A member of the RNA family "MIR2912 microRNA precursor family" from Populus trichocarpa, 155 nucleotides long. The match comes from Rfam's covariance-model search (142 bits). Taxonomically the source falls in Populus (Eukaryota, Tracheophyta, Mesangiospermae, rosids). Rfam links the family to the GO terms RISC complex and miRNA-mediated post-transcriptional gene silencing. The base pairs follow the family's consensus structure, which was predicted with RNAalifold.

RNA sequence: UCUAGAACUCGAGAUAUGGGCUUAACACUGAACAAUGUAUGGGCUUCAGGACAGAUUCUGACUUCUCUUUUGUUGCUACAAUUUGAACUUGAAAACGACCGUUUUGAAUCUUGGACUCUUAUGAAAGUUUUAGGCCUAUAUCUUAGCUUUCCAUC
Numbered sequence: 001u002c003u004a005g006a007a008c009u010c011g012a013g014a015u016a017u018g019g020g021c022u023u024a025a026c027a028c029u030g031a032a033c034a035a036u037g038u039a040u041g042g043g044c045u046u047c048a049g050g051a052c053a054g055a056u057u058c059u060g061a062c063u064u065c066u067c068u069u070u071u072g073u074u075g076c077u078a079c080a081a082u083u084u085g086a087a088c089u090u091g092a093a094a095a096c097g098a099c100c101g102u103u104u105u106g107a108a109u110c111u112u113g114g115a116c117u118c119u120u121a122u123g124a125a126a127g128u129u130u131u132a133g134g135c136c137u138a139u140a141u142c143u144u145a146g147c148u149u150u151c152c153a154u155c
Stems, first nucleotide, its partner, number of pairs: 003153001005151003008146002011144010021133002024130002027128003035122003042118002045115002048112004054105002058101001060099001063097001068092002072088003